[Rfam]
RNA sequence: UAGAAAUUAAAUAAAGGACCUCAUAUAAUCUCGGGAAUAUGGCCCGUAAGUCUCUACCUGACGACCGUUAAUCGUCGGACUAUGAGGGAAGAUCGGUUGCAG
Numbered sequence: 001u002a003g004a005a006a007u008u009a010a011a012u013a014a015a016g017g018a019c020c021u022c023a024u025a026u027a028a029u030c031u032c033g034g035g036a037a038u039a040u041g042g043c044c045c046g047u048a049a050g051u052c053u054c055u056a057c058c059u060g061a062c063g064a065c066c067g068u069u070a071a072u073c074g075u076c077g078g079a080c081u082a083u084g085a086g087g088g089a090a091g092a093u094c095g096g097u098u099g100c101a102g
Stems, first nucleotide, its partner, number of pairs: 019087007029049001032046004058078007
This 102-nucleotide RNA from Pontibacillus marinus belongs to the Rfam family "Purine riboswitch aptamer". Pairs were carried over by alignment from the consensus structure, which is taken from published work. It scores 87 bits against the family's covariance model. On this family, see Mandal et al., Cell 2003: "Riboswitches Control Fundamental Biochemical Pathways in Bacillus subtilis and Other Bacteria".